[Rfam]
RNA: Y RNA-like
RNA sequence: GUGGCGAAUGCUCGCGGGACUACAUGCCUAUCACGCCCCAGGUCGUGGGUUCGACUCCCACCAGCCGCUCAUUGCAAUGGCGGCUGUAGCUCAGUUGGUAGAGCAGGGAACGUCUCGCAAAUCCCUUGUCGCCACGCU
Numbered sequence: 001g002u003g004g005c006g007a008a009u010g011c012u013c014g015c016g017g018g019a020c021u022a023c024a025u026g027c028c029u030a031u032c033a034c035g036c037c038c039c040a041g042g043u044c045g046u047g048g049g050u051u052c053g054a055c056u057c058c059c060a061c062c063a064g065c066c067g068c069u070c071a072u073u074g075c076a077a078u079g080g081c082g083g084c085u086g087u088a089g090c091u092c093a094g095u096u097g098g099u100a101g102a103g104c105a106g107g108g109a110a111c112g113u114c115u116c117g118c119a120a121a122u123c124c125c126u127u128g129u130c131g132c133c134a135c136g137c138u
Base pairs, nucleotide, nucleotide: 002134003133004132005131006130007129014118015117016116017115018114019113023108038107039106045061046060047059048058049057052098062086063085064084065083066082067081068080069079089104090103091102092101